[Rfam]
This 154-nucleotide sequence from Epichloe festucae belongs to the Rfam family "Small nucleolar RNA snR80". The family's RNA type in Rfam is H/ACA-box small nucleolar RNA. The match comes from Rfam's covariance-model search (51 bits). NCBI's taxonomy places the organism under Eukaryota, leotiomyceta, Sordariomycetes, Hypocreales, Epichloe festucae.
Nucleotides: 154
Base pairs, nucleotide, nucleotide: 007065008064009063019053020052021051022050023049024048027045028044029043083149084148085147086146096134097133098132099131101129102128103127104126105125106124
Number, partner (000 for none) and nucleotide at each position: 001000c002000a003000a004000u005000c006000c007065u008064u009063g010000g011000c012000u013000a014000c015000a016000c017000u018000c019053u020052g021051a022050a023049a024048u025000u026000c027045a028044c029043c030000u031000u032000c033000a034000c035000u036000g037000c038000u039000u040000c041000a042000u043029g044028g045027u046000u047000u048024a049023u050022u051021u052020c053019a054000a055000u056000u057000u058000u059000u060000g061000u062000u063009c064008a065007a066000g067000g068000a069000a070000g071000a072000c073000g074000a075000a076000a077000u078000u079000u080000a081000g082000c083149u084148g085147u086146c087000u088000u089000u090000u091000a092000c093000u094000c095000a096134c097133c098132g099131c100000a101129a102128c103127a104126c105125c106124c107000u108000g109000u110000a111000g112000c113000a114000u115000g116000u117000u118000c119000u120000c121000u122000g123000u124106g125105g126104g127103u128102g129101u130000a131099g132098c133097g134096g135000u136000c137000c138000a139000u140000g141000a142000a143000u144000a145000a146086g147085g148084c149083a150000c151000a152000c153000a154000u